[Rfam]
RNA sequence: GCUUGGGGACGACCCCGGCAUUUGCCUUCCAUACCAGGGAUGCGGGACGACCCGC
Numbered sequence: 001g002c003u004u005g006g007g008g009a010c011g012a013c014c015c016c017g018g019c020a021u022u023u024g025c026c027u028u029c030c031a032u033a034c035c036a037g038g039g040a041u042g043c044g045g046g047a048c049g050a051c052c053c054g055c
Stems, first nucleotide, its partner, number of pairs: 003018006042055005
RNA: Guanidine-II riboswitch aptamer (mini-ykkC)
Organism: Allobosea sp. TND4EK4